The family of this 101-nucleotide sequence from Clostridium botulinum is "azaaromatic riboswitch aptamer (yjdF RNA)". The base pairs follow the family's consensus structure, which is taken from published work. The source organism's lineage runs through Bacteria, Bacillota, Eubacteriales, Clostridium and Clostridium botulinum F.

RNA sequence: UAGCUUCGAGAUAAAAACACGAUUCGGUUGGUAGUCCGAAUGGGGUAAUUAGCCCUCAGUAACCUGCCCUCCUGGGGUUGUCCAUUCUCUAAAUUUAGCUG
Number, nucleotide and partner (000 for none) at each position: 001u000002a000003g000004c000005u092006u091007c000008g089009a088010g087011a086012u000013a000014a000015a000016a000017a000018c000019a000020c000021g000022a041023u040024u039025c038026g037027g036028u000029u000030g000031g000032u000033a000034g000035u000036c027037c026038g025039a024040a023041u022042g056043g055044g054045g053046u052047a000048a000049u000050u000051a000052g046053c045054c044055c043056u042057c000058a000059g000060u000061a000062a000063c000064c000065u000066g078067c077068c076069c075070u000071c000072c000073u000074g000075g069076g068077g067078u066079u000080g000081u000082c000083c000084a000085u000086u011087c010088u009089c008090u000091a006092a005093a000094u000095u000096u000097a000098g000099c000100u000101g000